[Rfam]
RNA sequence: GGCUCAGUGAUUUUCUGCCUUAGUUGCAGUAUACGCUAUUCCGAUUCAUAAUGUGAGCUGAUAUAUUUUCUUAGAUGAGAGCC
Dot-bracket structure: (((((.........................................................................)))))